Small nucleolar RNA SNORA41: a 135-nucleotide RNA sequence from Callorhinchus milii. For this family Rfam cites "RNomics: an experimental approach that identifies 201 candidates for novel, small, non-messenger RNAs in mouse" (Huttenhofer et al., EMBO J, 2001). ACA41 is a member of the H/ACA class of snoRNA that guide the sites of modification of uridines to pseudouridines. Pairs were carried over by alignment from the consensus structure, which was predicted with PFOLD. Rfam 15.1 lists 676 matches to the family in 522 species. NCBI's taxonomy places the organism under Eukaryota, Eumetazoa, Bilateria, Deuterostomia, Callorhinchus.
RNA sequence: UUCCACAGAUACUGGUCUGGAAUUGCUUGCUUGGUAGUAGUUUCAGUAUUCCUUCUGUGGAAUAAUAAUUGUUGCACUCAGUUAUCAGCUCUUUAUAAAUCACUAUCAAAGUGCUUUAUGGUGUGACACACAUUU
Numbered sequence: 001u002u003c004c005a006c007a008g009a010u011a012c013u014g015g016u017c018u019g020g021a022a023u024u025g026c027u028u029g030c031u032u033g034g035u036a037g038u039a040g041u042u043u044c045a046g047u048a049u050u051c052c053u054u055c056u057g058u059g060g061a062a063u064a065a066u067a068a069u070u071g072u073u074g075c076a077c078u079c080a081g082u083u084a085u086c087a088g089c090u091c092u093u094u095a096u097a098a099a100u101c102a103c104u105a106u107c108a109a110a111g112u113g114c115u116u117u118a119u120g121g122u123g124u125g126a127c128a129c130a131c132a133u134u135u
Stems, first nucleotide, its partner, number of pairs: 003060004017046009074124005087115003091111004